[Rfam]
RNA sequence: CUGACGGCACCGCGUGGGCUGAUAUCGGAAUGAAAGCCCUGGCCCUCUACCGCGGAAAGGCCAAGGAGAGGGCCCGCGUGACCGUCAG
Dot-bracket structure: (((((.....((...(((....(.(((...))).).)))..(((((((.(..............).))))))).)).......)))))
The family of this 88-nucleotide RNA from Geoglobus ahangari is "L4-Archaeoglobi ribosomal protein leades".
A search with the family's covariance model found it, with a score of 41 bits.
The family's consensus secondary structure is taken from published work.
The family's RNA type in Rfam is cis-regulatory leader.